[Rfam]
A member of the RNA family "Group II catalytic intron D1-D4-3" from a Betaproteobacteria bacterium, 166 nucleotides long.
RNA sequence: AAGGCCGUGAGGCGUUGCCUGAAGGAAGCCCAAGUGCAAAGUUGCGAGCCGAGGAACACGAACCGCAUCGAAGGCUCAGUCUGCGGGCGAGUUGGCACCACACAACGAAGCCCGAGAGUUCAGCGGACAGCGUAAAUGCGGCGGUUGUGCAACGAAAGCGCAUGUU
Numbered sequence: 001a002a003g004g005c006c007g008u009g010a011g012g013c014g015u016u017g018c019c020u021g022a023a024g025g026a027a028g029c030c031c032a033a034g035u036g037c038a039a040a041g042u043u044g045c046g047a048g049c050c051g052a053g054g055a056a057c058a059c060g061a062a063c064c065g066c067a068u069c070g071a072a073g074g075c076u077c078a079g080u081c082u083g084c085g086g087g088c089g090a091g092u093u094g095g096c097a098c099c100a101c102a103c104a105a106c107g108a109a110g111c112c113c114g115a116g117a118g119u120u121c122a123g124c125g126g127a128c129a130g131c132g133u134a135a136a137u138g139c140g141g142c143g144g145u146u147g148u149g150c151a152a153c154g155a156a157a158g159c160g161c162a163u164g165u166u
Base pairs, nucleotide, nucleotide: 001016002015004013005012006011028166030164036159037158041153042152043151044150045149046148047146048145049144050143051142063141064140065139066138067137068136074133075132079128080127081126082125083124084123085113086112087111088110091106092105093104094103
Overview
NCBI's taxonomy places the organism under Bacteria, Pseudomonadati, Pseudomonadota, Betaproteobacteria.